The record is a 78-nucleotide RNA from Takifugu rubripes, which matches "mir-96 microRNA precursor family" in Rfam. The literature on the family includes a 2003 paper in Dev Cell by Houbaviy et al., "Embryonic stem cell-specific MicroRNAs". It is one of the family's seed sequences.
RNA sequence: UCGCCCAUUUUGGCACUAGCACAUUUUUGCUUCUGUAUGUAUACUUUGAGCAAUUAUGUGUAGUGCCAAUAUAGGAGA
Numbered sequence: 001u002c003g004c005c006c007a008u009u010u011u012g013g014c015a016c017u018a019g020c021a022c023a024u025u026u027u028u029g030c031u032u033c034u035g036u037a038u039g040u041a042u043a044c045u046u047u048g049a050g051c052a053a054u055u056a057u058g059u060g061u062a063g064u065g066c067c068a069a070u071a072u073a074g075g076a077g078a
Stems, first nucleotide, its partner, number of pairs: 004075002007072002010069008019061006027053006